[Rfam]
RNA sequence: GCAUCAUCGUUGGGAGAAACCGCUUCAUUGCGGUGCCGAAGGAGCAACCGCCCCGGAAACUCUCAGGCAAAAGGACCAGCGAUGACGA
Numbered sequence: 001g002c003a004u005c006a007u008c009g010u011u012g013g014g015a016g017a018a019a020c021c022g023c024u025u026c027a028u029u030g031c032g033g034u035g036c037c038g039a040a041g042g043a044g045c046a047a048c049c050g051c052c053c054c055g056g057a058a059a060c061u062c063u064c065a066g067g068c069a070a071a072a073g074g075a076c077c078a079g080c081g082a083u084g085a086c087g088a
Stems, first nucleotide, its partner, number of pairs: 006083008020033004035068003038064002042062003048056002